This 121-nucleotide RNA sequence from Mesocestoides corti belongs to the Rfam family "U11 spliceosomal RNA". NCBI's taxonomy places the organism under Eukaryota, Eumetazoa, Bilateria, Spiralia, Mesocestoides. Clan: U1 clan. Its family is annotated with U11 snRNP, pre-mRNA 5'-splice site binding and mRNA 5'-splice site recognition in the Gene Ontology. It scores 50 bits against the family's covariance model. The family's consensus secondary structure is taken from published work.
[Rfam]
RNA sequence: CAAAAGGGCUUCGCGUCUUAUGCGCGGCUGGGCCGGCAGGUCCAAGCUUGGAAUGGUUAUCAAGUCAUUCCGGAAGCAUAAUCUUUGCGGUGGGAUGGCUCGUAAAUGAUGGGCCGCCUGA
Number, nucleotide and partner (000 for none) at each position: 001c000002a000003a000004a000005a000006g000007g000008g077009c076010u075011u074012c073013g025014c024015g023016u022017c000018u000019u000020a000021u000022g016023c015024g014025c013026g048027g047028c046029u045030g000031g043032g041033c040034c039035g000036g000037c000038a000039g034040g033041u032042c000043c031044a000045a029046g028047c027048u026049u072050g071051g070052a069053a068054u067055g066056g000057u000058u000059a000060u000061c000062a000063a000064g000065u000066c055067a054068u053069u052070c051071c050072g049073g012074a011075a010076g009077c008078a000079u000080a000081a000082u000083c000084u000085u000086u000087g000088c000089g000090g000091u000092g119093g118094g117095a000096u000097g115098g114099c113100u112101c111102g000103u000104a000105a000106a000107u000108g000109a000110u000111g101112g100113g099114c098115c097116g000117c094118c093119u092120g000121a000